[Rfam]
RNA sequence: CUACAGACGUCUGGGUUUCGAGACAAUCGAGCCAUUAUUAUUAUUCAGGUUCGUUGUCGACGAAACCUGCACGAUUUGUAU
Numbered sequence: 001c002u003a004c005a006g007a008c009g010u011c012u013g014g015g016u017u018u019c020g021a022g023a024c025a026a027u028c029g030a031g032c033c034a035u036u037a038u039u040a041u042u043a044u045u046c047a048g049g050u051u052c053g054u055u056g057u058c059g060a061c062g063a064a065a066c067c068u069g070c071a072c073g074a075u076u077u078g079u080a081u
Stems, first nucleotide, its partner, number of pairs: 002080005012069009029052005
A member of the RNA family "mir-981 microRNA precursor family" from Aphidius gifuensis, 81 nucleotides long.
The match comes from Rfam's covariance-model search (66 bits).
Gene Ontology terms of the family: RISC complex and miRNA-mediated post-transcriptional gene silencing.
The family's consensus secondary structure was predicted with RNAalifold.